Shown here is an 82-nucleotide RNA from Oculatella sp. LEGE 06141, a member of the family "Glutamine riboswitch aptamer (glnA leader)".
Rfam links the family to the GO term glutamine binding.

[Rfam]
RNA sequence: UUCGUUCAUCUCAGAUGACAUCUUAAGCAAUUUUAGACGACUUCUGGGACGGAAGUAGGGGUCUCGCCCGAAGGAACGCGUU
Numbered sequence: 001u002u003c004g005u006u007c008a009u010c011u012c013a014g015a016u017g018a019c020a021u022c023u024u025a026a027g028c029a030a031u032u033u034u035a036g037a038c039g040a041c042u043u044c045u046g047g048g049a050c051g052g053a054a055g056u057a058g059g060g061g062u063c064u065c066g067c068c069c070g071a072a073g074g075a076a077c078g079c080g081u082u
Base pairs, nucleotide, nucleotide: 003078004077005076006075007074009049010048011047012046013045014044015043052079058069059068060067